[Rfam]
Nucleotides: 088
Stems, first nucleotide, its partner, number of pairs: 002085001003083004009077006017069004025059004032053006
Number, partner (000 for none) and nucleotide at each position: 001000g002085u003083g004082a005081a006080g007000a008000a009077u010076u011075u012074g013073a014072a015000g016000a017069c018068u019067u020066c021000c022000u023000c024000u025059u026058g027057c028056a029000u030000a031000c032053u033052u034051g035050g036049a037048g038000g039000a040000u041000u042000u043000g044000a045000a046000g047000a048037c049036u050035u051034c052033a053032a054000c055000u056028u057027g058026c059025a060000u061000a062000c063000u064000u065000u066020g067019g068018a069017g070000g071000a072014u073013u074012u075011g076010a077009a078000g079000a080006c081005u082004u083003c084000c085002a086000a087000c088000u
The family of this 88-nucleotide sequence from Solanum commersonii is "MIR8024 microRNA precursor family". NCBI's taxonomy places the organism under Eukaryota, Mesangiospermae, eudicotyledons, Solaneae, Solanum. Rfam 15.1 lists 661 matches to the family in 8 species.